RNA sequence: AGGGGAGCAAUAGGUUACCUCUUGUUUUAUCAAGAGGGUGUUAUUGCUCUUUUUUUU
Numbered sequence: 001a002g003g004g005g006a007g008c009a010a011u012a013g014g015u016u017a018c019c020u021c022u023u024g025u026u027u028u029a030u031c032a033a034g035a036g037g038g039u040g041u042u043a044u045u046g047c048u049c050u051u052u053u054u055u056u057u
Base pairs, nucleotide, nucleotide: 001053002052003051004050005049006048007047008046009045010044011043012042013041019036020035021034022033023032024031